[Rfam]
RNA: Enterococcus sRNA 84
RNA sequence: AACCAACAUAACCUUUUUAUUUUUCAUUUUACUCUUAACCAGAGUAAAACUCCUUUUUUUCACCCGACCUAACCAAUCGGGUGAUUUUUUUU
Number, nucleotide and partner (000 for none) at each position: 001a000002a000003c000004c000005a000006a000007c000008a000009u000010a000011a000012c000013c000014u000015u000016u000017u000018u000019a000020u000021u000022u000023u000024u000025c000026a000027u000028u048029u047030u046031a045032c044033u043034c042035u000036u000037a000038a000039c000040c000041a000042g034043a033044g032045u031046a030047a029048a028049a000050c000051u000052c000053c000054u000055u000056u000057u000058u000059u000060u084061c083062a082063c081064c080065c079066g078067a077068c000069c000070u076071a000072a000073c000074c000075a000076a070077u067078c066079g065080g064081g063082u062083g061084a060085u000086u000087u000088u000089u000090u000091u000092u000